[Rfam]
RNA: Vault RNA
Organism: Monodelphis domestica
RNA sequence: GGGCCAGCUUUAGCCCAGCGGUUCUUUCCCUCACUUAAAACAUUUCUUACAUUUUCGCUUUGUGGUUCGAAUCCCAGGACCCGUCCGACACCCGCGGGUGCUUCCCAGUCCUCCC
Numbered sequence: 001g002g003g004c005c006a007g008c009u010u011u012a013g014c015c016c017a018g019c020g021g022u023u024c025u026u027u028c029c030c031u032c033a034c035u036u037a038a039a040a041c042a043u044u045u046c047u048u049a050c051a052u053u054u055u056c057g058c059u060u061u062g063u064g065g066u067u068c069g070a071a072u073c074c075c076a077g078g079a080c081c082c083g084u085c086c087g088a089c090a091c092c093c094g095c096g097g098g099u100g101c102u103u104c105c106c107a108g109u110c111c112u113c114c115c
Stems, first nucleotide, its partner, number of pairs: 002110003007105001013099004018095004026071003